[Rfam]
RNA sequence: CCGUGCUAGAUGGGGAGCUAGCGGUACCCUGUAACCUGCAACCCGCUACAGCAGGAUCAAUCGCUUUUUCGAGGAUCCAAAGAACAUUAGUCUUAUCGAUGUAAGUGGUGAUGAGGGCCGGAUCUCAUGCAAUAAGAGAUUGUGUGAACCUGGUCAGGUGCGGAAGCAAGCAGCCAUAAGCAUAUAUCCUUAAUGUGCAGUGAGCCCGUCUGGCCUGAGCUUACUGCAUAGACAAGCUAAUGGGAAUGGAGACAGAAAAAAGUGCACGG
Dot-bracket structure: ((((((..(((((((.(((...))).))))....(((((...........)))))))).....((((((...(..((...(...((((((...(..(.((((..(((((.....((((((((((((((.((.((((....(((((.....((((....(((....)))....))))...)))))....)))).))....)))))...)))))))))..))).)).)))).)..)..))))))....).))..)...)))))).))))))
Shown here is a 269-nucleotide RNA sequence from Candidatus Brocadia sapporoensis, a member of the family "Bacterial large signal recognition particle RNA". The family's consensus secondary structure is taken from published work.